[Rfam]
RNA sequence: CGCCCGGCCGGAUCCCGUGGGGGGAAUCCGUACCGGGACUGGGAAGGCGCCCUGGCCGUCGGC
Numbered sequence: 001c002g003c004c005c006g007g008c009c010g011g012a013u014c015c016c017g018u019g020g021g022g023g024g025a026a027u028c029c030g031u032a033c034c035g036g037g038a039c040u041g042g043g044a045a046g047g048c049g050c051c052c053u054g055g056c057c058g059u060c061g062g063c
Stems, first nucleotide, its partner, number of pairs: 001061002003037005009030005014024003041052003
About this RNA: Shown here is a 63-nucleotide RNA from Streptomyces viridochromogenes, a member of the family "Streptomyces RNA 2736". On this family, see Vockenhuber et al., RNA Biol 2011: "Deep sequencing-based identification of small non-coding RNAs in Streptomyces coelicolor". Pairs were carried over by alignment from the consensus structure. Identified by deep sequencing of transcriptome at the end of exponential growth phase. Appears smaller on northern blot than sequencing transcript. This indicates processing step. It is annotated as a small RNA.